[Rfam]
RNA sequence: UGUCAGUUCUACAUACCUACUUAUAUAUCGUCAUAAUAUGGAUGACAGUUUCUAGCCGAUGCCGUAAAGAUUGGACUAUAAGUAAAAGAGUGGACAAC
Numbered sequence: 001u002g003u004c005a006g007u008u009c010u011a012c013a014u015a016c017c018u019a020c021u022u023a024u025a026u027a028u029c030g031u032c033a034u035a036a037u038a039u040g041g042a043u044g045a046c047a048g049u050u051u052c053u054a055g056c057c058g059a060u061g062c063c064g065u066a067a068a069g070a071u072u073g074g075a076c077u078a079u080a081a082g083u084a085a086a087a088g089a090g091u092g093g094a095c096a097a098c
Base pairs, nucleotide, nucleotide: 018084019083020082021081022080023079024078025077030046031045032044033043034042056074057073058072059071060070

This 98-nucleotide RNA from Enterococcus thailandicus belongs to the Rfam family "Purine riboswitch aptamer". Taxonomically the source falls in Enterococcus (Bacteria, Bacillati, Bacilli, Enterococcaceae).